[Rfam]
RNA sequence: GGAAGUAUACCCAAGUCUCGGUUGAAGGGGGCGGUCUCGAAAACCGUUAGAUGGAGUAAUCCAUGCAAGAGUUCGAAUCUCUUUACUUCCG
Numbered sequence: 001g002g003a004a005g006u007a008u009a010c011c012c013a014a015g016u017c018u019c020g021g022u023u024g025a026a027g028g029g030g031g032c033g034g035u036c037u038c039g040a041a042a043a044c045c046g047u048u049a050g051a052u053g054g055a056g057u058a059a060u061c062c063a064u065g066c067a068a069g070a071g072u073u074c075g076a077a078u079c080u081c082u083u084u085a086c087u088u089c090c091g
Base pairs, nucleotide, nucleotide: 001090002089003088004087005086006085007084010029011028012027031047032046033045034044035043067083068082069081070080071079
tRNA: a 91-nucleotide RNA sequence from Spiroplasma citri.
Pairs were carried over by alignment from the consensus structure, which is taken from published work.
Rfam's curators put it in the seed alignment.
The organism belongs to Spiroplasma, within Bacteria.